[Rfam]
RNA: Small nucleolar RNA SNORD2
RNA sequence: GAGUGAAAUGAUGGUAUCAUCUUUCGGGACAGACCUGACUUUGGUGACAACUUUUUAUACUGAUCACUC
Dot-bracket structure: ((((((.........................................................))))))